RNA sequence: CACACCCGUGCGGGAGAGUCCCGGGCAAGCCAGCCCGUGGCGCCGAAGGAGCAAGAUCUCCCCACAAACUCUCAGGCCCCCAACCGCCGGGUCAGG
Numbered sequence: 001c002a003c004a005c006c007c008g009u010g011c012g013g014g015a016g017a018g019u020c021c022c023g024g025g026c027a028a029g030c031c032a033g034c035c036c037g038u039g040g041c042g043c044c045g046a047a048g049g050a051g052c053a054a055g056a057u058c059u060c061c062c063c064a065c066a067a068a069c070u071c072u073c074a075g076g077c078c079c080c081c082a083a084c085c086g087c088c089g090g091g092u093c094a095g096g
Stems, first nucleotide, its partner, number of pairs: 006091002010087004020040002042077003045073002049071003055065001
Glycine riboswitch aptamer: a 96-nucleotide RNA from Pseudofrankia asymbiotica. The match comes from Rfam's covariance-model search (45 bits). Pairs were carried over by alignment from the consensus structure. Its family is annotated with glycine biosynthetic process in the Gene Ontology. Lineage of the source: Bacteria > Bacillati > Frankiales > Frankiaceae > Pseudofrankia.